Rfam assigns this 504-nucleotide part of an RNA to the family "Eukaryotic large subunit ribosomal RNA". The family's consensus secondary structure is taken from published work.
[Rfam]
RNA sequence: GGUAGUAGCAAAUAUUCGAGCGAGAACCUCGAAGGCCGAAGUGGAGAAGGGUUCCGCGUUGCUCCUUCGAUCGGCCGCGGGUUAGUCGGUCCUAAGGCCUGGGAGAAAUCCUACGGGAAGCGGGACGUUUUUAACUUUAAAAAUUAGUCUCACCCAAUGCACGGGCCGAAAGGGAAACGGGUUAGGAUUCCCGUACCCGAAGGCGGAGCACAAGCGGCGACGCAAAGAAGGUCGGAUACACCGUCGGGAGAGUCGAGAAGAGUUAACUUUUCUUUUUGAGGUGCGCUCGCUGACCCUGGAAGCGGUUCUGCCGGAGAUAGGGAGCGAGAGCAAUCAACUUUAUCCGCAAAGCCGGCUCCAGCGGGGGCCUGUUCGGCUACGACUCGACGGUCCUUGAAACUCCGACGGCUAAACUUUUCUUUUGAAUAUGAAAAUGUGUUCGCUCUCGCCUCGGGCCGUACCUCAAUCCGCCGCAGGUCUCCAAGGUUCGCAGCCUCUGGUCGA
Numbered sequence: 001g002g003u004a005g006u007a008g009c010a011a012a013u014a015u016u017c018g019a020g021c022g023a024g025a026a027c028c029u030c031g032a033a034g035g036c037c038g039a040a041g042u043g044g045a046g047a048a049g050g051g052u053u054c055c056g057c058g059u060u061g062c063u064c065c066u067u068c069g070a071u072c073g074g075c076c077g078c079g080g081g082u083u084a085g086u087c088g089g090u091c092c093u094a095a096g097g098c099c100u101g102g103g104a105g106a107a108a109u110c111c112u113a114c115g116g117g118a119a120g121c122g123g124g125a126c127g128u129u130u131u132u133a134a135c136u137u138u139a140a141a142a143a144u145u146a147g148u149c150u151c152a153c154c155c156a157a158u159g160c161a162c163g164g165g166c167c168g169a170a171a172g173g174g175a176a177a178c179g180g181g182u183u184a185g186g187a188u189u190c191c192c193g194u195a196c197c198c199g200a201a202g203g204c205g206g207a208g209c210a211c212a213a214g215c216g217g218c219g220a221c222g223c224a225a226a227g228a229a230g231g232u233c234g235g236a237u238a239c240a241c242c243g244u245c246g247g248g249a250g251a252g253u254c255g256a257g258a259a260g261a262g263u264u265a266a267c268u269u270u271u272c273u274u275u276u277u278g279a280g281g282u283g284c285g286c287u288c289g290c291u292g293a294c295c296c297u298g299g300a301a302g303c304g305g306u307u308c309u310g311c312c313g314g315a316g317a318u319a320g321g322g323a324g325c326g327a328g329a330g331c332a333a334u335c336a337a338c339u340u341u342a343u344c345c346g347c348a349a350a351g352c353c354g355g356c357u358c359c360a361g362c363g364g365g366g367g368c369c370u371g372u373u374c375g376g377c378u379a380c381g382a383c384u385c386g387a388c389g390g391u392c393c394u395u396g397a398a399a400c401u402c403c404g405a406c407g408g409c410u411a412a413a414c415u416u417u418u419c420u421u422u423u424g425a426a427u428a429u430g431a432a433a434a435u436g437u438g439u440u441c442g443c444u445c446u447c448g449c450c451u452c453g454g455g456c457c458g459u460a461c462c463u464c465a466a467u468c469c470g471c472c473g474c475a476g477g478u479c480u481c482c483a484a485g486g487u488u489c490g491c492a493g494c495c496u497c498u499g500g501u502c503g504a
Stems, first nucleotide, its partner, number of pairs: 015033006034502004043482004049462002054080005061075001065073001087458003091173002096167002098116002102111003123160001125158001177194005197454004202450005207444002214223003231406006240391004245386004253376003256276006280345002294322005303313003352371001354369005468477002484496004